[Rfam]
RNA: ASpks TB sRNA
RNA sequence: CUUGACCGAGCCCAGCCACAGCGGGUGUUCGCGCUCCUGCCCGUAGGUGGCCAGCAGCGCCUCCGCCUC
Dot-bracket structure: .............(.((.....)).).....((...(((.(((....))).)))...))..........